[Rfam]
RNA sequence: ACCAACCCUAGGGUAGCUCCUGAAAAGCCGGACACCUUCACCGGCUUGGGUUGGUUCCAAAUGAAGG
Numbered sequence: 001a002c003c004a005a006c007c008c009u010a011g012g013g014u015a016g017c018u019c020c021u022g023a024a025a026a027g028c029c030g031g032a033c034a035c036c037u038u039c040a041c042c043g044g045c046u047u048g049g050g051u052u053g054g055u056u057c058c059a060a061a062u063g064a065a066g067g
Base pairs, nucleotide, nucleotide: 001055002054003053004052005051006050007049008048011021012020013019027045028044029043030042031041035067036066037065038064039063

int-alpA RNA: a 67-nucleotide RNA from Ketobacter alkanivorans. From the family's description: Acidobacteria (1 example), Planctomycetes (1 example), Proteobacteria. The family's RNA type in Rfam is small RNA.